RNA sequence: GGGGCAUCAAUGAUGAGUAAAUUUCUUGUUAUCCUUGCACAUUGACUGCUAGUGAUGAAAACCAAUGGGGAAAUUUUAGUCUGAGCUGCCC
Numbered sequence: 001g002g003g004g005c006a007u008c009a010a011u012g013a014u015g016a017g018u019a020a021a022u023u024u025c026u027u028g029u030u031a032u033c034c035u036u037g038c039a040c041a042u043u044g045a046c047u048g049c050u051a052g053u054g055a056u057g058a059a060a061a062c063c064a065a066u067g068g069g070g071a072a073a074u075u076u077u078a079g080u081c082u083g084a085g086c087u088g089c090c091c
Stems, first nucleotide, its partner, number of pairs: 002091005008085001
Small nucleolar RNA snoR26: a 91-nucleotide RNA sequence from Beta vulgaris.
Its family is annotated with RNA processing and nucleolus in the Gene Ontology.
A reference for the family is Brown et al. (2001), "Multiple snoRNA gene clusters from Arabidopsis", RNA.